[Rfam]
RNA sequence: UCGAAACAUCAAGAGCAGUAUUAAUCUGCACCAACCGAGCACGACAGCCACGGUGGUCAAGAUACGAUGUGGAAAUAAGUUUAAUUUCAAAAAUAAGUCUUUAUGA
Numbered sequence: 001u002c003g004a005a006a007c008a009u010c011a012a013g014a015g016c017a018g019u020a021u022u023a024a025u026c027u028g029c030a031c032c033a034a035c036c037g038a039g040c041a042c043g044a045c046a047g048c049c050a051c052g053g054u055g056g057u058c059a060a061g062a063u064a065c066g067a068u069g070u071g072g073a074a075a076u077a078a079g080u081u082u083a084a085u086u087u088c089a090a091a092a093a094u095a096a097g098u099c100u101u102u103a104u105g106a
Stems, first nucleotide, its partner, number of pairs: 006070005015029004020025001030057003035053003039048002043100001072088004
The family of this 106-nucleotide RNA is "SAM-I/IV (S-adenosyl methionine) riboswitch aptamer". The family's consensus secondary structure is taken from published work. The sequence is in the family's curated seed alignment.